[Rfam]
RNA: 6S / SsrS RNA
RNA sequence: GUACCACUACCGCGUUGGUGACUACCUCACAAGUUUAUUGAUCUAUGCUUGAUUUAUGAGGGAAUAGCAACAGUUUUUGUGGAAGUAUACCGAGCAAGUACUCGGAAAUGGAAAUAGAAACAGCCAAUUCCCACCCUGGUAUUCCAGGUCAUAAACUAAGGUAAAACGGCGUGGCGGUGGACUA
Numbered sequence: 001g002u003a004c005c006a007c008u009a010c011c012g013c014g015u016u017g018g019u020g021a022c023u024a025c026c027u028c029a030c031a032a033g034u035u036u037a038u039u040g041a042u043c044u045a046u047g048c049u050u051g052a053u054u055u056a057u058g059a060g061g062g063a064a065u066a067g068c069a070a071c072a073g074u075u076u077u078u079g080u081g082g083a084a085g086u087a088u089a090c091c092g093a094g095c096a097a098g099u100a101c102u103c104g105g106a107a108a109u110g111g112a113a114a115u116a117g118a119a120a121c122a123g124c125c126a127a128u129u130c131c132c133a134c135c136c137u138g139g140u141a142u143u144c145c146a147g148g149u150c151a152u153a154a155a156c157u158a159a160g161g162u163a164a165a166a167c168g169g170c171g172u173g174g175c176g177g178u179g180g181a182c183u184a
Stems, first nucleotide, its partner, number of pairs: 004180005010174006018167002034155004039151006060132003064128002067125001073121007085109002090105005